A member of the RNA family "Small nucleolar RNA R32/R81/Z41" from Arabis alpina, 94 nucleotides long. The family has 6 seed sequences and 238 matches in Rfam 15.1. The base pairs follow the family's consensus structure, which was predicted with PFOLD. The source organism's lineage runs through Eukaryota, Viridiplantae, Embryophyta, Tracheophyta and Arabis.

RNA sequence: UGUAGAAAGUGAUGAAAGUUGUAGAUCGGUGAUAAUCUUUUGAUUUAUAUGAUCGAUAAAAAUUUCAACUCGCUACGUUCUUUCUGAUUCUUUU
Numbered sequence: 001u002g003u004a005g006a007a008a009g010u011g012a013u014g015a016a017a018g019u020u021g022u023a024g025a026u027c028g029g030u031g032a033u034a035a036u037c038u039u040u041u042g043a044u045u046u047a048u049a050u051g052a053u054c055g056a057u058a059a060a061a062a063u064u065u066c067a068a069c070u071c072g073c074u075a076c077g078u079u080c081u082u083u084c085u086g087a088u089u090c091u092u093u094u
Stems, first nucleotide, its partner, number of pairs: 004091004